[Rfam]
RNA sequence: UAAACUCCAAUUUGUAUGGAGGCGAAACGUUUACCUACGUUUGCCGCUAUGGGCGCUGUUUCAACUACAUACGAAUUCGAGUUA
Numbered sequence: 001u002a003a004a005c006u007c008c009a010a011u012u013u014g015u016a017u018g019g020a021g022g023c024g025a026a027a028c029g030u031u032u033a034c035c036u037a038c039g040u041u042u043g044c045c046g047c048u049a050u051g052g053g054c055g056c057u058g059u060u061u062c063a064a065c066u067a068c069a070u071a072c073g074a075a076u077u078c079g080a081g082u083u084a
Base pairs, nucleotide, nucleotide: 009077010076011075012074013073014072015071016070018068020066021065024062025061026060027059028058029057034052035051039047040046
RNA: mir-2807 microRNA precursor family
Organism: Bombyx mori